A member of the RNA family "Small nucleolar RNA SNORD89" from Propithecus coquereli, 116 nucleotides long. Its family is annotated with RNA processing and nucleolus in the Gene Ontology. Rfam 15.1 lists 642 matches to the family in 573 species. Rfam's curators write: snoRNA HBII-289 belongs to the family of C/D snoRNAs. It is the human orthologue of the mouse MBII-289 and has no identified RNA target. The family's RNA type in Rfam is C/D-box small nucleolar RNA. For this family Rfam cites "RNomics: an experimental approach that identifies 201 candidates for novel, small, non-messenger RNAs in mouse" (Huttenhofer et al., EMBO J, 2001).
[Rfam]
RNA sequence: ACUGAGGAGUGAUGACAAUAAAAGGCCGAAUUGCAGUGUGUCCAUCAGCAGUUUGCUCUCUGUGUGGGCACACGAUGACAAAAUCACCUGAAGCGAACUGAUGGUCUGACCUCAGU
Numbered sequence: 001a002c003u004g005a006g007g008a009g010u011g012a013u014g015a016c017a018a019u020a021a022a023a024g025g026c027c028g029a030a031u032u033g034c035a036g037u038g039u040g041u042c043c044a045u046c047a048g049c050a051g052u053u054u055g056c057u058c059u060c061u062g063u064g065u066g067g068g069c070a071c072a073c074g075a076u077g078a079c080a081a082a083a084u085c086a087c088c089u090g091a092a093g094c095g096a097a098c099u100g101a102u103g104g105u106c107u108g109a110c111c112u113c114a115g116u
Stems, first nucleotide, its partner, number of pairs: 001116007014106003025034002035102001037100002041096002043093001045091004051073002054070005074087001077084001